Shown here is a 71-nucleotide RNA from Rynchops niger, a member of the family "mir-34 microRNA precursor family".
Lineage of the source: Eukaryota > Metazoa > Bilateria > Tetrapoda > Rynchops.
Rfam describes the family as follows. Human mir-34a was discovered computationally and later experimentally verified.
Gene Ontology terms of the family: miRNA-mediated post-transcriptional gene silencing and RISC complex.
The literature on the family includes a 2003 paper in Science by Lim et al., "Vertebrate microRNA genes".
Rfam 15.1 lists 2,256 matches to the family in 820 species.
RNA sequence: GGUUUGUAGGCAGUGUGGUUAGCAGAUUGUAUCUACCACUCCACAAUCACUAACUUCACUGCCAUCAAAAC
Numbered sequence: 001g002g003u004u005u006g007u008a009g010g011c012a013g014u015g016u017g018g019u020u021a022g023c024a025g026a027u028u029g030u031a032u033c034u035a036c037c038a039c040u041c042c043a044c045a046a047u048c049a050c051u052a053a054c055u056u057c058a059c060u061g062c063c064a065u066c067a068a069a070a071c
Stems, first nucleotide, its partner, number of pairs: 003069004009063002012060004017055006025048006